[Rfam]
RNA sequence: AAAGUAGCCAGACACACGCAGGUUGCAAGUACUGGAGCUUUAGCCCUGUUA
Numbered sequence: 001a002a003a004g005u006a007g008c009c010a011g012a013c014a015c016a017c018g019c020a021g022g023u024u025g026c027a028a029g030u031a032c033u034g035g036a037g038c039u040u041u042a043g044c045c046c047u048g049u050u051a
Stems, first nucleotide, its partner, number of pairs: 001040002008035002011033001012030002018049005
Dot-bracket structure: [[.....[[.[[[....(((((......]]..]]]...]]....)))))..
Shown here is a 51-nucleotide RNA sequence from Polerovirus DVPV, a member of the family "Exoribonuclease-resistant RNA (xrRNA) plant-infecting virus (class 3)".
Pairs were carried over by alignment from the consensus structure, which is taken from published work.
Its family is annotated with viral RNA genome replication in the Gene Ontology.
About the family: Exoribonuclease-resistant RNA (xrRNA) plant-infecting virus (class 3) is a ncRNA that was reported in Plant viruses.